[Rfam]
RNA sequence: CGCGUAUUUUGCCUAGACGGAGUUCGACCGCCGCGGCAAGUGAUGAUCGAUUUCAUCGAUCAUCAUCGCGACGUCUGCGGUGUCGAGCCGAUCUGCACGACAACAGCGCGAUGCCCG
Number, nucleotide and partner (000 for none) at each position: 001c000002g000003c000004g000005u000006a000007u000008u000009u000010u000011g000012c000013c000014u000015a000016g032017a000018c030019g029020g028021a000022g000023u000024u000025c000026g000027a000028c020029c019030g018031c000032c016033g000034c000035g000036g000037c000038a000039a000040g000041u000042g000043a000044u000045g000046a000047u000048c000049g000050a000051u000052u000053u000054c000055a000056u000057c000058g000059a000060u000061c000062a000063u000064c000065a000066u000067c000068g000069c000070g000071a000072c000073g000074u000075c000076u000077g000078c117079g116080g115081u000082g114083u000084c000085g000086a000087g000088c000089c113090g112091a000092u110093c000094u108095g107096c106097a000098c000099g104100a000101c000102a000103a000104c099105a000106g096107c095108g094109c000110g092111a000112u090113g089114c082115c080116c079117g078
RNA: ALIL pseudoknot
Organism: Salinisphaera hydrothermalis